This 70-nucleotide RNA from Tetraodon nigroviridis belongs to the Rfam family "mir-29 microRNA precursor family". The sequence is in the family's curated seed alignment. This family represents the microRNA (miRNA) precursors mir-29. Lineage of the source: Eukaryota > Eumetazoa > Actinopterygii > Neopterygii > Tetraodon. Rfam links the family to the GO terms RISC complex and gene silencing by miRNA. Rfam 15.1 lists 3,328 matches to the family in 787 species.
[Rfam]
RNA sequence: AGAAGCUGGUUUCACGUGGUGGUUUAGAUGUGUCUCCUCAUCGUCUAGCACCAUUUGAAAUCAGUGUUCU
Numbered sequence: 001a002g003a004a005g006c007u008g009g010u011u012u013c014a015c016g017u018g019g020u021g022g023u024u025u026a027g028a029u030g031u032g033u034c035u036c037c038u039c040a041u042c043g044u045c046u047a048g049c050a051c052c053a054u055u056u057g058a059a060a061u062c063a064g065u066g067u068u069c070u
Stems, first nucleotide, its partner, number of pairs: 001070004005065010016054006025047004